RNA sequence: UAGUACAGCGCCUGGCACAUAGUAAGCGCUUAACAAAUAUUUGUUAAGCGCUUACUAUGUGCCGAGCACUGUUCUAA
Numbered sequence: 001u002a003g004u005a006c007a008g009c010g011c012c013u014g015g016c017a018c019a020u021a022g023u024a025a026g027c028g029c030u031u032a033a034c035a036a037a038u039a040u041u042u043g044u045u046a047a048g049c050g051c052u053u054a055c056u057a058u059g060u061g062c063c064g065a066g067c068a069c070u071g072u073u074c075u076a077a
Stems, first nucleotide, its partner, number of pairs: 002075002006071003010067002013064006020057005026051010
A member of the RNA family "mir-1271 microRNA precursor family" from Ornithorhynchus anatinus, 77 nucleotides long.
It scores 84 bits against the family's covariance model.
Taxonomically the source falls in Ornithorhynchus (Eukaryota, Opisthokonta, Metazoa, Mammalia).
The family has 13 seed sequences and 128 matches in Rfam 15.1.